[Rfam]
Notes
ZMP/ZTP riboswitch aptamer (pfl RNA motif): an 85-nucleotide RNA sequence from Nanchangia anserum.

RNA sequence: UGGAGACGUCGCGACUGGCGUGGGUGGGCCACCACCGGGGAGCGACUGAGACGGCGGGAUCCAGCCGCCCGCCUGGGCUGGACCG
Numbered sequence: 001u002g003g004a005g006a007c008g009u010c011g012c013g014a015c016u017g018g019c020g021u022g023g024g025u026g027g028g029c030c031a032c033c034a035c036c037g038g039g040g041a042g043c044g045a046c047u048g049a050g051a052c053g054g055c056g057g058g059a060u061c062c063a064g065c066c067g068c069c070c071g072c073c074u075g076g077g078c079u080g081g082a083c084c085g
Stems, first nucleotide, its partner, number of pairs: 008046005015039002017073004024035004062080005

NCBI's taxonomy places the organism under Bacteria, Bacillati, Actinomycetota, Actinomycetales, Nanchangia.